[Rfam]
RNA sequence: UUCUUAUCAAGAAAAGCUGAGGGAAAUGGCCCGUUGAAGCUUUAGCAACCUCUUCUGUAAAAGGAAGAAAGGUGCUACGUCCAGCCGCUGCAAAGCGGAAAGAUAGGUA
Numbered sequence: 001u002u003c004u005u006a007u008c009a010a011g012a013a014a015a016g017c018u019g020a021g022g023g024a025a026a027u028g029g030c031c032c033g034u035u036g037a038a039g040c041u042u043u044a045g046c047a048a049c050c051u052c053u054u055c056u057g058u059a060a061a062a063g064g065a066a067g068a069a070a071g072g073u074g075c076u077a078c079g080u081c082c083a084g085c086c087g088c089u090g091c092a093a094a095g096c097g098g099a100a101a102g103a104u105a106g107g108u109a
Stems, first nucleotide, its partner, number of pairs: 001109001003107006013043005021032003027083003044076004049072002051068004080101001085098005
Rfam assigns this 109-nucleotide sequence from Moheibacter sediminis to the family "SAM riboswitch aptamer (S box leader)".
The base pairs follow the family's consensus structure, which is taken from published work.
Rfam's curators write: The SAM riboswitch is found upstream of a number of genes which code for proteins involved in methionine or cysteine biosynthesis in Gram-positive bacteria.
A search with the family's covariance model found it, with a score of 84 bits.
The source organism's lineage runs through Bacteria, Bacteroidota, Flavobacteriia, Weeksellaceae and Moheibacter.